This 117-nucleotide RNA sequence from Aneurinibacillus migulanus belongs to the Rfam family "SAM riboswitch aptamer (S box leader)". Clan: SAM clan.
RNA sequence: CUCUUAUCCAGAGAGGUGGAGGGACUGGCCCAAUGAAACCUCGGCAACCAUCGAAUUUUUAAGUUCAAAUUCGAGCGGUGCCAAUUCCAGCAGUGCAUGCGCGCUGAAAGAUGAGGG
Numbered sequence: 001c002u003c004u005u006a007u008c009c010a011g012a013g014a015g016g017u018g019g020a021g022g023g024a025c026u027g028g029c030c031c032a033a034u035g036a037a038a039c040c041u042c043g044g045c046a047a048c049c050a051u052c053g054a055a056u057u058u059u060u061a062a063g064u065u066c067a068a069a070u071u072c073g074a075g076c077g078g079u080g081c082c083a084a085u086u087c088c089a090g091c092a093g094u095g096c097a098u099g100c101g102c103g104c105u106g107a108a109a110g111a112u113g114a115g116g117g
Stems, first nucleotide, its partner, number of pairs: 001117008013042005021031003025090004043082004048078002051074008086109001091106006
Gene Ontology term of the family: regulation of gene expression. Taxonomically the source falls in Aneurinibacillus (Bacteria, Bacillati, Bacillota, Caryophanales). It scores 95 bits against the family's covariance model.